Rfam assigns this 220-nucleotide sequence to the family "glycine-GGAnGA riboswitch aptamer". About the family: glycine-GGAnGA riboswitch is a variant of glycine riboswitch that have in common a U69A change. This riboswitch is associate with genes that encode either saccharopine dehydrogenase or amino acid transporters and other genes with not predicted function. The sequence is in the family's curated seed alignment. The family is grouped with related families in Rfam's "Glycine riboswitch clan".
RNA sequence: GCGGGCGAGGGUGACCCUAGACAUCCCUUUUAAGCUAUGAUUCGGGCGAACUGAUUCAUAGUAAAAUCUACAAAGGGGGGCCGAAGAAGCAAACCGGAAAAGUGGCAGUUUUUCCGUGGAAACUGACAGGCAAAAAGGAAGGUCAUCGGACGAUACUUUGGAGAGACCACUUCAGUGUGGAGCCAACGAGGAUAUAACCAACCGGCAAAAGGACAGAGGA
Numbered sequence: 001g002c003g004g005g006c007g008a009g010g011g012u013g014a015c016c017c018u019a020g021a022c023a024u025c026c027c028u029u030u031u032a033a034g035c036u037a038u039g040a041u042u043c044g045g046g047c048g049a050a051c052u053g054a055u056u057c058a059u060a061g062u063a064a065a066a067u068c069u070a071c072a073a074a075g076g077g078g079g080g081c082c083g084a085a086g087a088a089g090c091a092a093a094c095c096g097g098a099a100a101a102g103u104g105g106c107a108g109u110u111u112u113u114c115c116g117u118g119g120a121a122a123c124u125g126a127c128a129g130g131c132a133a134a135a136a137g138g139a140a141g142g143u144c145a146u147c148g149g150a151c152g153a154u155a156c157u158u159u160g161g162a163g164a165g166a167c168c169a170c171u172u173c174a175g176u177g178u179g180g181a182g183c184c185a186a187c188g189a190g191g192a193u194a195u196a197a198c199c200a201a202c203c204g205g206c207a208a209a210a211g212g213a214c215a216g217a218g219g220a
Stems, first nucleotide, its partner, number of pairs: 002152002010147007022079001024078007080131003086127001088124002095116009156218005167180004182206003188202001190199002